[Rfam]
RNA: Bacterial RNase P class A
RNA sequence: CGAGCCGGCCGGGCGGCCGCGACGGGGGUGACCCCGCCGAGGAAAGUCCGGACUCCGCAGGGCAGGGUGGUUGUUAACGGCAACCCGGAGUGAUCCGCGGGACAGUGCCACAGAAAACAGACCGCCGGGCCGUGCCCUCGGGCGCGGUCGGGUAAGGGUGAAACGGUGGUGUAAGAGACCACCAGCACCCCGGGUGACCGGGGUGGCUCGGUAAACCCCACCCGGAGCAAGGCCAAGAGGACGCCGGCGACGGCGUCUGCGCGAGCGUUCGAGGGCGGCCCGCCCGAUGCUCGCGGGUAGGCCGCUGGAGCCCGUCGGCGACGGCGGGCCUAGAUGGAUGGUCGCCGGUCGAGUCGCCGCGAGGCGGUUCGACGACAGAAUCCGGCUUAGAGGCCGGCUCGUCCU
Numbered sequence: 001c002g003a004g005c006c007g008g009c010c011g012g013g014c015g016g017c018c019g020c021g022a023c024g025g026g027g028g029u030g031a032c033c034c035c036g037c038c039g040a041g042g043a044a045a046g047u048c049c050g051g052a053c054u055c056c057g058c059a060g061g062g063c064a065g066g067g068u069g070g071u072u073g074u075u076a077a078c079g080g081c082a083a084c085c086c087g088g089a090g091u092g093a094u095c096c097g098c099g100g101g102a103c104a105g106u107g108c109c110a111c112a113g114a115a116a117a118c119a120g121a122c123c124g125c126c127g128g129g130c131c132g133u134g135c136c137c138u139c140g141g142g143c144g145c146g147g148u149c150g151g152g153u154a155a156g157g158g159u160g161a162a163a164c165g166g167u168g169g170u171g172u173a174a175g176a177g178a179c180c181a182c183c184a185g186c187a188c189c190c191c192g193g194g195u196g197a198c199c200g201g202g203g204u205g206g207c208u209c210g211g212u213a214a215a216c217c218c219c220a221c222c223c224g225g226a227g228c229a230a231g232g233c234c235a236a237g238a239g240g241a242c243g244c245c246g247g248c249g250a251c252g253g254c255g256u257c258u259g260c261g262c263g264a265g266c267g268u269u270c271g272a273g274g275g276c277g278g279c280c281c282g283c284c285c286g287a288u289g290c291u292c293g294c295g296g297g298u299a300g301g302c303c304g305c306u307g308g309a310g311c312c313c314g315u316c317g318g319c320g321a322c323g324g325c326g327g328g329c330c331u332a333g334a335u336g337g338a339u340g341g342u343c344g345c346c347g348g349u350c351g352a353g354u355c356g357c358c359g360c361g362a363g364g365c366g367g368u369u370c371g372a373c374g375a376c377a378g379a380a381u382c383c384g385g386c387u388u389a390g391a392g393g394c395c396g397g398c399u400c401g402u403c404c405u
Stems, first nucleotide, its partner, number of pairs: 001401010012346007020039002023036005044388003048385005053227004060281004065223005070084005085099001086097004100218002105216002107212003122157002124153003128149009165183006185207001186205008231303004261294006273285004310329008
Dot-bracket structure: ((((((((((.(((((((.((.(((((....))))).))....[[[.[[[[[((((...[[[[.((((((((((.....)))))(((((....)))).)((...(((((............(((((.(((((((((....))))))))).)))..)).......((((((.......)))))).(((((((((....)))))))).)..)))..)))))))))))))...((((..........................((((((......((((.]]]]))))...)))))).....))))......((((((((....))))))))..........)))))))..................................]]]]]]]]...))))))))))....